[Rfam]
Rfam assigns this 102-nucleotide RNA from Streptomyces sp. B93 to the family "che1 RNA".
RNA sequence: UGGACAGGGGGGUCUUCGCCCGAACGGCGAAGCCUGUCCGGCAAGGUUGUGCGUGAUGCGUGUCAGGCGCGACCAGUGGUUGUCGCUCGGGGGUGAUCGCCG
Numbered sequence: 001u002g003g004a005c006a007g008g009g010g011g012g013u014c015u016u017c018g019c020c021c022g023a024a025c026g027g028c029g030a031a032g033c034c035u036g037u038c039c040g041g042c043a044a045g046g047u048u049g050u051g052c053g054u055g056a057u058g059c060g061u062g063u064c065a066g067g068c069g070c071g072a073c074c075a076g077u078g079g080u081u082g083u084c085g086c087u088c089g090g091g092g093g094u095g096a097u098c099g100c101c102g
Stems, first nucleotide, its partner, number of pairs: 001040008014032007045074008
Taxonomically the source falls in Streptomyces (Bacteria, Actinomycetota, Actinomycetes, Streptomycetaceae).